[Rfam]
RNA sequence: AGCGCGUCACAACGGCUUCCUGGCGUGGCGUGGCUUAAACCCAAUGGAGCA
Numbered sequence: 001a002g003c004g005c006g007u008c009a010c011a012a013c014g015g016c017u018u019c020c021u022g023g024c025g026u027g028g029c030g031u032g033g034c035u036u037a038a039a040c041c042c043a044a045u046g047g048a049g050c051a
Stems, first nucleotide, its partner, number of pairs: 004031007013022002015050003019047002
Rfam assigns this 51-nucleotide sequence from Meinhardsimonia xiamenensis to the family "SAM/SAH riboswitch aptamer". The organism belongs to Meinhardsimonia, within Bacteria. Gene Ontology terms of the family: S-adenosylmethionine metabolic process and regulation of gene expression. A search with the family's covariance model found it, with a score of 54 bits.